Notes: This 120-nucleotide RNA from Aotus nancymaae belongs to the Rfam family "Small nucleolar RNA SNORA25". Lineage of the source: Eukaryota > Dipnotetrapodomorpha > Mammalia > Euarchontoglires > Aotus. It is annotated as an H/ACA-box small nucleolar RNA. It scores 98 bits against the family's covariance model. ACA25 is a member of the H/ACA class of snoRNA that guide the sites of modification of uridines to pseudouridines. Gene Ontology terms of the family: nucleolus and RNA processing.

RNA sequence: AGGACACUUCAAUGAGGGCUCAUGGGGCUGUGAAUUCAAGAGCUAUUAACACUAUGACCAAAAUUCUCUAUAGGAUCCAUAGCACUGAAUAGUGCUAUAUUUCCCUGAGGAAGUAUAAGA
Numbered sequence: 001a002g003g004a005c006a007c008u009u010c011a012a013u014g015a016g017g018g019c020u021c022a023u024g025g026g027g028c029u030g031u032g033a034a035u036u037c038a039a040g041a042g043c044u045a046u047u048a049a050c051a052c053u054a055u056g057a058c059c060a061a062a063a064u065u066c067u068c069u070a071u072a073g074g075a076u077c078c079a080u081a082g083c084a085c086u087g088a089a090u091a092g093u094g095c096u097a098u099a100u101u102u103c104c105c106u107g108a109g110g111a112a113g114u115a116u117a118a119g120a
Stems, first nucleotide, its partner, number of pairs: 002059002005056002014047002017044005023039001026037002065113001067111003072106003079098008